[Rfam]
RNA sequence: CCCGUCGUGAGGCGGGAUCUGAAGGGAACCGGAACCACAACUCGGACUCGACGAACAGAAAUCGGAUACAAGGCCGCUGACGCUGGGCAACGUGGCAAUGGACACGGACGCCCGAUACUCAUCCGGAAGCGUCUGCGGUAGAUCCGGCGAGGCCCGAGGGAAGCAAACACG
Numbered sequence: 001c002c003c004g005u006c007g008u009g010a011g012g013c014g015g016g017a018u019c020u021g022a023a024g025g026g027a028a029c030c031g032g033a034a035c036c037a038c039a040a041c042u043c044g045g046a047c048u049c050g051a052c053g054a055a056c057a058g059a060a061a062u063c064g065g066a067u068a069c070a071a072g073g074c075c076g077c078u079g080a081c082g083c084u085g086g087g088c089a090a091c092g093u094g095g096c097a098a099u100g101g102a103c104a105c106g107g108a109c110g111c112c113c114g115a116u117a118c119u120c121a122u123c124c125g126g127a128a129g130c131g132u133c134u135g136c137g138g139u140a141g142a143u144c145c146g147g148c149g150a151g152g153c154c155c156g157a158g159g160g161a162a163g164c165a166a167a168c169a170c171g
Stems, first nucleotide, its partner, number of pairs: 001016006029171001032168001041158005047151004062147006073139003077135001079133005085113004091106004
Rfam assigns this 171-nucleotide RNA from Maioricimonas rarisocia to the family "Group II catalytic intron D1-D4-3". The match comes from Rfam's covariance-model search (122 bits). Rfam's curators write: Group II introns are found in rRNA, tRNA and mRNA of organelles in fungi, plants and protists, and also in mRNA in bacteria. Lineage of the source: Bacteria > Pseudomonadati > Planctomycetia > Planctomycetales > Maioricimonas. For this family Rfam cites "Group II introns: structure and catalytic versatility of large natural ribozymes" (Lehmann and Schmidt, Crit Rev Biochem Mol Biol, 2003).